[Rfam]
RNA sequence: AAGAAAAGACAUACAAAGACUGGGAACAGGCAGAGCAUGAAUGGAGCUACAAACAGAAAUCUCUGUUUUGGCACCACCCAUGCACUGCCUCUUCCCUGGCUUGUGGCUCUUCUUUUUCU
Numbered sequence: 001a002a003g004a005a006a007a008g009a010c011a012u013a014c015a016a017a018g019a020c021u022g023g024g025a026a027c028a029g030g031c032a033g034a035g036c037a038u039g040a041a042u043g044g045a046g047c048u049a050c051a052a053a054c055a056g057a058a059a060u061c062u063c064u065g066u067u068u069u070g071g072c073a074c075c076a077c078c079c080a081u082g083c084a085c086u087g088c089c090u091c092u093u094c095c096c097u098g099g100c101u102u103g104u105g106g107c108u109c110u111u112c113u114u115u116u117u118c119u
Stems, first nucleotide, its partner, number of pairs: 016102003020098001022096005028090006035083005044074001